[Rfam]
RNA sequence: CAGUUAAGUGAUGACGUGGCAGAAGAAGUCCCACGUCUUCACGCCUUGUCACGGACACCUCAUUGCCAUGUUAGUACCUUCAAUGAUAUGGCAACAAUGUGUUAGUGAUAAGGCAUGAUGAUGUGACACUCUGUCUGCCAUGUCAUCACUUAACGGAA
Numbered sequence: 001c002a003g004u005u006a007a008g009u010g011a012u013g014a015c016g017u018g019g020c021a022g023a024a025g026a027a028g029u030c031c032c033a034c035g036u037c038u039u040c041a042c043g044c045c046u047u048g049u050c051a052c053g054g055a056c057a058c059c060u061c062a063u064u065g066c067c068a069u070g071u072u073a074g075u076a077c078c079u080u081c082a083a084u085g086a087u088a089u090g091g092c093a094a095c096a097a098u099g100u101g102u103u104a105g106u107g108a109u110a111a112g113g114c115a116u117g118a119u120g121a122u123g124u125g126a127c128a129c130u131c132u133g134u135c136u137g138c139c140a141u142g143u144c145a146u147c148a149c150u151u152a153a154c155g156g157a158a
Stems, first nucleotide, its partner, number of pairs: 001156001003154021025132001027130003032125006039118003043114004048109005054103005070087004
The record is a 158-nucleotide RNA from Glycine max, which matches "MIR4371 microRNA precursor family" in Rfam. The match comes from Rfam's covariance-model search (133 bits). The source organism's lineage runs through Eukaryota, Streptophytina, Embryophyta, Fabaceae and Glycine subgen. Soja. The family is grouped with related families in Rfam's "MIR4387 microRNA precursor clan".